RNA: IS605-orfB-I RNA
RNA sequence: GUCCUAUAUAGAUGUAUCAGCGCAAGCCAGCGGAGCAUCUCCCUGUAGGGCAAAGUUUAAUUAGAAACUCUGACAACAAUUCUCAUUGUAUGGCUACGGUUGAAAUGGGAUGAGUUAGAGUGGAAUAGGUUAACCGUAAGACCUUGAGUUGCAAAAUUCUAAAAUUGAGCUAGGAAUAUGAAUUCCAGAACUUUUAUAUUUCUAGUUACGGUUUG
Numbered sequence: 001g002u003c004c005u006a007u008a009u010a011g012a013u014g015u016a017u018c019a020g021c022g023c024a025a026g027c028c029a030g031c032g033g034a035g036c037a038u039c040u041c042c043c044u045g046u047a048g049g050g051c052a053a054a055g056u057u058u059a060a061u062u063a064g065a066a067a068c069u070c071u072g073a074c075a076a077c078a079a080u081u082c083u084c085a086u087u088g089u090a091u092g093g094c095u096a097c098g099g100u101u102g103a104a105a106u107g108g109g110a111u112g113a114g115u116u117a118g119a120g121u122g123g124a125a126u127a128g129g130u131u132a133a134c135c136g137u138a139a140g141a142c143c144u145u146g147a148g149u150u151g152c153a154a155a156a157u158u159c160u161a162a163a164a165u166u167g168a169g170c171u172a173g174g175a176a177u178a179u180g181a182a183u184u185c186c187a188g189a190a191c192u193u194u195u196a197u198a199u200u201u202c203u204a205g206u207u208a209c210g211g212u213u214u215g
Base pairs, nucleotide, nucleotide: 001051002050003049004048005047006046007045008044010040011039012038013037014036015035017034018033020031021030022028067121068120069119070118071117072116073115074114081110082109083108084107085106086105087104092101093100127144128143129142130141131140133212134211135210136209137208138207139165146159147158148157149156150155170205171204172203173202174201175200176199177198178197179196180195181194